[Rfam]
RNA sequence: UCAGCAUUCCGGGCCCCUCUGGCGCGCCUUCUGACGCGUGAUGUCGGACUGCUCCG
Numbered sequence: 001u002c003a004g005c006a007u008u009c010c011g012g013g014c015c016c017c018u019c020u021g022g023c024g025c026g027c028c029u030u031c032u033g034a035c036g037c038g039u040g041a042u043g044u045c046g047g048a049c050u051g052c053u054c055c056g
Stems, first nucleotide, its partner, number of pairs: 006050001008048005022039005028033001
The family of this 56-nucleotide sequence from Aquabacter spiritensis is "terC RNA". It is annotated as a cis-regulatory element. It scores 49 bits against the family's covariance model.